Flavo-1 RNA: a 135-nucleotide sequence from Formosa agariphila. Pairs were carried over by alignment from the consensus structure, which is taken from published work.
[Rfam]
RNA sequence: UUUUUGCGUUAGUGAUUGCAGUGGCAUCCUUUUUAUGAGAUGAUAAGAAUGCAUUUUAAUUGAAGCUUAAAGGUGCUUGGCAUAAAAUUGCUGAGGUAAGGUAAUAAAAAGAUAUAACGGAAAGCGCGACCUUUA
Numbered sequence: 001u002u003u004u005u006g007c008g009u010u011a012g013u014g015a016u017u018g019c020a021g022u023g024g025c026a027u028c029c030u031u032u033u034u035a036u037g038a039g040a041u042g043a044u045a046a047g048a049a050u051g052c053a054u055u056u057u058a059a060u061u062g063a064a065g066c067u068u069a070a071a072g073g074u075g076c077u078u079g080g081c082a083u084a085a086a087a088u089u090g091c092u093g094a095g096g097u098a099a100g101g102u103a104a105u106a107a108a109a110a111g112a113u114a115u116a117a118c119g120g121a122a123a124g125c126g127c128g129a130c131c132u133u134u135a
Stems, first nucleotide, its partner, number of pairs: 012127003016123002021118002026113003032108005
Dot-bracket structure: ...........(((.((...((...(((...(((((...................................................................)))))..)))...))...)).)))........